[Rfam]
RNA sequence: GCUGUUGAGUGAUGAGACUCUGGAAUGAGUGCUGGGCACGGCGCCCGAGUCAGGCUGUGGAAACAUUGCUUGCUGCCUUGCUUUUGAGAGCAGC
Numbered sequence: 001g002c003u004g005u006u007g008a009g010u011g012a013u014g015a016g017a018c019u020c021u022g023g024a025a026u027g028a029g030u031g032c033u034g035g036g037c038a039c040g041g042c043g044c045c046c047g048a049g050u051c052a053g054g055c056u057g058u059g060g061a062a063a064c065a066u067u068g069c070u071u072g073c074u075g076c077c078u079u080g081c082u083u084u085u086g087a088g089a090g091c092a093g094c
Stems, first nucleotide, its partner, number of pairs: 001094005
This 94-nucleotide RNA from Diceros bicornis belongs to the Rfam family "Small nucleolar RNA U83B". From the family's description: U83B belongs to the C/D family of snoRNAs. U83B like U83A has no documented RNA target and they share the same host gene with the C/D box snoRNA U43 (RPL3). N.B. U83A/B/C have no sequence similarity with the U83 snoRNA that was cloned by Jady and Kiss (2000). Gene Ontology terms of the family: RNA processing and nucleolus. On this family, see Jady and Kiss, Nucleic Acids Res 2000: "Characterisation of the U83 and U84 small nucleolar RNAs: two novel 2'-O-ribose methylation guide RNAs that lack complementarities to ribosomal RNAs". It scores 96 bits against the family's covariance model.